[Rfam]
RNA: mir-1302 microRNA precursor family
RNA sequence: UUUUUAGUGUAAGUAUAUCUCAUGCAAUGUUUGAGGCAUGCUUACACUAAAA
Numbered sequence: 001u002u003u004u005u006a007g008u009g010u011a012a013g014u015a016u017a018u019c020u021c022a023u024g025c026a027a028u029g030u031u032u033g034a035g036g037c038a039u040g041c042u043u044a045c046a047c048u049a050a051a052a
Base pairs, nucleotide, nucleotide: 006048007047008046009045010044011043012042014040015039016038018036019035020034021033022031